[Rfam]
RNA: Mitochondrial DNA control region secondary structure A
RNA sequence: UAUUCUCGUGUGGAAGUAAUUUUGGGUACAACCCCAGUAUCGAUCUAUCCCCUAUAAUUUUAUGUACUUCGUACAUUACUGCUAGCCCCCAUGGAUAUUGUACA
Numbered sequence: 001u002a003u004u005c006u007c008g009u010g011u012g013g014a015a016g017u018a019a020u021u022u023u024g025g026g027u028a029c030a031a032c033c034c035c036a037g038u039a040u041c042g043a044u045c046u047a048u049c050c051c052c053u054a055u056a057a058u059u060u061u062a063u064g065u066a067c068u069u070c071g072u073a074c075a076u077u078a079c080u081g082c083u084a085g086c087c088c089c090c091a092u093g094g095a096u097a098u099u100g101u102a103c104a
Base pairs, nucleotide, nucleotide: 006094007093008092009091010090012087013086016082017081018080022036024034025033026032027031037058038057040054042052062076063075064074065073066072